Streptomyces RNA 5676: a 130-nucleotide RNA from Streptomyces qinzhouensis. Rfam's curators write: Identified by deep sequencing of transcriptome at the end of exponential growth phase. The source organism's lineage runs through Bacteria, Bacillati, Actinomycetes, Streptomycetaceae and Streptomyces.
[Rfam]
RNA sequence: GGAUGAGAGAAACACCCCGCCCACGGUUCUCCGCGGGCGAAUCCGGAACAGCGCAUCCCCAGCACUGUUCCUCGCGUGCCUCCGCGCACGGCACCGGAACCUUGGGUUCCGGGACUCCUCACCGAUCGGA
Numbered sequence: 001g002g003a004u005g006a007g008a009g010a011a012a013c014a015c016c017c018c019g020c021c022c023a024c025g026g027u028u029c030u031c032c033g034c035g036g037g038c039g040a041a042u043c044c045g046g047a048a049c050a051g052c053g054c055a056u057c058c059c060c061a062g063c064a065c066u067g068u069u070c071c072u073c074g075c076g077u078g079c080c081u082c083c084g085c086g087c088a089c090g091g092c093a094c095c096g097g098a099a100c101c102u103u104g105g106g107u108u109c110c111g112g113g114a115c116u117c118c119u120c121a122c123c124g125a126u127c128g129g130a
Stems, first nucleotide, its partner, number of pairs: 004121004009117002018039005024033003042074001045071003049067003053063002076089004094112008122129002